[Rfam]
RNA sequence: GAGUGCCGAAGAGGCAAGAUGUUGGCAUAGCUGUGUCCAACGACAUAUUUUCAGCUGUGCCUACAUACUGCCAUUUUGUCACUUG
Numbered sequence: 001g002a003g004u005g006c007c008g009a010a011g012a013g014g015c016a017a018g019a020u021g022u023u024g025g026c027a028u029a030g031c032u033g034u035g036u037c038c039a040a041c042g043a044c045a046u047a048u049u050u051u052c053a054g055c056u057g058u059g060c061c062u063a064c065a066u067a068c069u070g071c072c073a074u075u076u077u078g079u080c081a082c083u084u085g
Stems, first nucleotide, its partner, number of pairs: 005080001007078005013072004019066003024061008